[Rfam]
RNA sequence: GGAAAAGACACUGGAUGCAGCGGUUCAUCGAUCUCUUCCUGAUUUGUUUGUGUGGAGAAACAAAAACCAUGAAUCGGUCGAUAAACCUCUGCAUCCAGCGCUUACUUU
Numbered sequence: 001g002g003a004a005a006a007g008a009c010a011c012u013g014g015a016u017g018c019a020g021c022g023g024u025u026c027a028u029c030g031a032u033c034u035c036u037u038c039c040u041g042a043u044u045u046g047u048u049u050g051u052g053u054g055g056a057g058a059a060a061c062a063a064a065a066a067c068c069a070u071g072a073a074u075c076g077g078u079c080g081a082u083a084a085a086c087c088u089c090u091g092c093a094u095c096c097a098g099c100g101c102u103u104a105c106u107u108u
Stems, first nucleotide, its partner, number of pairs: 013096003018091003022087004027082007036073003
RNA: MIR162_1 microRNA precursor family
Organism: Senna tora